[Rfam]
Rfam assigns this 141-nucleotide sequence from Paenibacillus sp. PvR098 to the family "c-di-AMP riboswitch aptamer (ydaO/yuaA leader)". About the family: This family represents a conserved RNA structure found upstream of the ydaO and yuaA genes in Bacillus subtilis and related genes in other bacteria.

RNA sequence: AUGAAAAUUUUGCCGAAUUUCUGUUUUAGGAAAACGGGGGAUCCAUAAAUCUGGGUGAAUUGAUCUCGACCUCGUCAGUGAUCAUAGGGAACCUUCAACCGAACCCUUCAGCUAACCUCGUAGGCACCGGAAGGGGAAACU
Number, nucleotide and partner (000 for none) at each position: 001a000002u000003g000004a000005a000006a000007a000008u000009u000010u000011u126012g125013c124014c123015g000016a000017a000018u033019u032020u031021c030022u029023g000024u000025u000026u000027u000028a000029g022030g021031a020032a019033a018034a121035c120036g119037g118038g117039g116040g000041a000042u000043c000044c000045a000046u000047a000048a000049a000050u000051c000052u000053g106054g105055g104056u000057g000058a000059a000060u000061u084062g083063a082064u081065c000066u000067c000068g000069a000070c000071c000072u000073c000074g000075u000076c000077a000078g000079u000080g000081a064082u063083c062084a061085u000086a000087g100088g099089g000090a000091a000092c000093c000094u000095u000096c000097a000098a000099c088100c087101g000102a000103a000104c055105c054106c053107u000108u000109c000110a000111g000112c000113u000114a000115a000116c039117c038118u037119c036120g035121u034122a000123g014124g013125c012126a011127c000128c000129g000130g000131a000132a000133g000134g000135g000136g000137a000138a000139a000140c000141u000